RNA sequence: UUGCCUUAAACUAAUGAGUAAGGAAAACAAAGCGAGCGGUGAGAGCCGCUCGCCGCGCUGAUCAUAAUUUUGCGCAAGAAUUUAUGGAGGGGUUAUAGGCUGGCCGGGCGUAGACGCUGCUUACUUUUGCAGAACUAGCUCGCGCGGGCCUCCC
Numbered sequence: 001u002u003g004c005c006u007u008a009a010a011c012u013a014a015u016g017a018g019u020a021a022g023g024a025a026a027a028c029a030a031a032g033c034g035a036g037c038g039g040u041g042a043g044a045g046c047c048g049c050u051c052g053c054c055g056c057g058c059u060g061a062u063c064a065u066a067a068u069u070u071u072g073c074g075c076a077a078g079a080a081u082u083u084a085u086g087g088a089g090g091g092g093u094u095a096u097a098g099g100c101u102g103g104c105c106g107g108g109c110g111u112a113g114a115c116g117c118u119g120c121u122u123a124c125u126u127u128u129g130c131a132g133a134a135c136u137a138g139c140u141c142g143c144g145c146g147g148g149c150c151u152c153c154c
Base pairs, nucleotide, nucleotide: 004023005022006021007020008019032053033052034051035050036049037048038047039046055075056074057073058072091154092153097151098150099149100148101147103145105142106141108139109138117132118131119130120129
U12 minor spliceosomal RNA: a 154-nucleotide RNA sequence from Nyssa sinensis. The family's RNA type in Rfam is spliceosomal small nuclear RNA. Lineage of the source: Eukaryota > Viridiplantae > Mesangiospermae > Gunneridae > Nyssa. On this family, see Tarn and Steitz, Trends Biochem Sci 1997: "Pre-mRNA splicing: the discovery of a new spliceosome doubles the challenge". The match comes from Rfam's covariance-model search (93 bits).